The family of this 48-nucleotide RNA sequence from Gloeobacter violaceus is "Guanidine-II riboswitch aptamer (mini-ykkC)".
Simpler in structure and has fewer highly conserved nucleotide positions than the ykkC-yxkD leader. Despite this each of its two stem-loop structures directly bind free guanidine. Therefore, mini-ykkC RNA motif represents a distinct class of guanidine-sensing RNAs.
It is one of the family's seed sequences.
Taxonomically the source falls in Gloeobacter violaceus (Bacteria, Bacillati, Cyanophyceae, Gloeobacter).
The literature on the family includes a 2007 paper in Nucleic Acids Res by Weinberg et al., "Identification of 22 candidate structured RNAs in bacteria using the CMfinder comparative genomics pipeline".
[Rfam]
RNA sequence: CGGUGGGGACGACCCCACCCUUCGCAAAGUUUCGCGGGGACGACCCCG
Numbered sequence: 001c002g003g004u005g006g007g008g009a010c011g012a013c014c015c016c017a018c019c020c021u022u023c024g025c026a027a028a029g030u031u032u033c034g035c036g037g038g039g040a041c042g043a044c045c046c047c048g
Base pairs, nucleotide, nucleotide: 002019003018004017005016006015007014008013035048036047037046038045039044